[Rfam]
Nucleotides: 174
Base pairs, nucleotide, nucleotide: 020049021048022047023046024045025044026043027042029040058089059088060087061086062085067078068077069076070075090111091110092109093108094107095106116164117163118162119161120160121159130147131146132145133144134143135142136141
Number, partner (000 for none) and nucleotide at each position: 001000u002000u003000u004000u005000a006000u007000u008000g009000u010000a011000a012000a013000g014000c015000g016000c017000c018000u019000g020049g021048a022047c023046u024045a025044a026043g027042c028000a029040g030000g031000a032000g033000c034000g035000g036000a037000c038000a039000u040029c041000u042027g043026c044025u045024u046023a047022g048021u049020u050000g051000a052000c053000g054000a055000g056000g057000a058089g059088g060087a061086g062085g063000u064000u065000u066000a067078u068077c069076g070075a071000a072000g073000u074000u075070u076069c077068g078067g079000c080000g081000g082000a083000u084000g085062c086061c087060u088059c089058c090111c091110g092109g093108u094107u095106g096000c097000c098000u099000u100000c101000c102000c103000g104000u105000a106095c107094a108093g109092c110091c111090g112000u113000a114000a115000a116164g117163u118162c119161a120160c121159g122000u123000c124000u125000u126000a127000a128000a129000a130147c131146a132145a133144a134143g135142a136141g137000g138000c139000g140000a141136c142135u143134c144133u145132u146131u147130g148000c149000a150000c151000a152000a153000a154000a155000a156000g157000a158000c159121u160120g161119u162118g163117a164116c165000a166000u167000a168000a169000c170000g171000g172000g173000a174000u